[Rfam]
RNA sequence: AGUGAGGAUAGAGGUGCAUUGACCAAGAGUAGGCAACAUGAGGAGAAUGAGCUCCGUUGAACGUCGCUGAAAGGGGAAUUUGCCGAAGUGAAUAGAAGCUCAUCAUUCUAUUUGCUGGUUCUGUAUUAAAUAAAUACAGAGCUGUCAUAUAGCUAGUCGCUAUAUGGAGGGCUAUCUCACGC
Numbered sequence: 001a002g003u004g005a006g007g008a009u010a011g012a013g014g015u016g017c018a019u020u021g022a023c024c025a026a027g028a029g030u031a032g033g034c035a036a037c038a039u040g041a042g043g044a045g046a047a048u049g050a051g052c053u054c055c056g057u058u059g060a061a062c063g064u065c066g067c068u069g070a071a072a073g074g075g076g077a078a079u080u081u082g083c084c085g086a087a088g089u090g091a092a093u094a095g096a097a098g099c100u101c102a103u104c105a106u107u108c109u110a111u112u113u114g115c116u117g118g119u120u121c122u123g124u125a126u127u128a129a130a131u132a133a134a135u136a137c138a139g140a141g142c143u144g145u146c147a148u149a150u151a152g153c154u155a156g157u158c159g160c161u162a163u164a165u166g167g168a169g170g171g172c173u174a175u176c177u178c179a180c181g182c
Stems, first nucleotide, its partner, number of pairs: 006177006016083003023076002032068003036064002039061001087116011117143011145167007

A member of the RNA family "Lysine riboswitch aptamer" from Radiobacillus deserti, 182 nucleotides long.
Its family is annotated with lysine biosynthetic process in the Gene Ontology.